[Rfam]
RNA: Y RNA
RNA sequence: GGCUGGUCCGAAGCUAGGGAGUUAUCUCACUUGAUUGUUCACAGUAAGUUACAGAUUGAACUCCUUGCUCUACUACUUAACCCCCCUCCUCACUACUGCAGUUGACUAGUCUUAA
Numbered sequence: 001g002g003c004u005g006g007u008c009c010g011a012a013g014c015u016a017g018g019g020a021g022u023u024a025u026c027u028c029a030c031u032u033g034a035u036u037g038u039u040c041a042c043a044g045u046a047a048g049u050u051a052c053a054g055a056u057u058g059a060a061c062u063c064c065u066u067g068c069u070c071u072a073c074u075a076c077u078u079a080a081c082c083c084c085c086c087u088c089c090u091c092a093c094u095a096c097u098g099c100a101g102u103u104g105a106c107u108a109g110u111c112u113u114a115a
Base pairs, nucleotide, nucleotide: 001111002110003109004108005107006106007105008104010103011102015098016094017093019091020090021089043077044076045075047071048070